[Rfam]
RNA sequence: AGAAGUUUAUCUGUGUGAACUUCUUGGCUUAGUAUCGUUGAGAAGAAUCGAGAGAUUAGUGCAGUUUAAACAGUU
Numbered sequence: 001a002g003a004a005g006u007u008u009a010u011c012u013g014u015g016u017g018a019a020c021u022u023c024u025u026g027g028c029u030u031a032g033u034a035u036c037g038u039u040g041a042g043a044a045g046a047a048u049c050g051a052g053a054g055a056u057u058a059g060u061g062c063a064g065u066u067u068a069a070a071c072a073g074u075u
Stems, first nucleotide, its partner, number of pairs: 001075002005071005011064006020045004027036001029034001046057004

Shown here is a 75-nucleotide RNA sequence from Orthoflavivirus japonicum, a member of the family "Dengue virus SLA". Rfam's curators write: Flavivirus stem-loop A (SLA) is a secondary structure present in the 5 prime untranslated (5'-UTR) region of viruses of the genus Flavivirus. Rfam links the family to the GO term viral RNA genome replication. Its Rfam clan is "Flavivirus 5' UTR clan". Taxonomically the source falls in Orthoflavivirus japonicum (Viruses, Orthornavirae, Kitrinoviricota, Flasuviricetes). Rfam's curators put it in the seed alignment. Pairs were carried over by alignment from the consensus structure, which is taken from published work.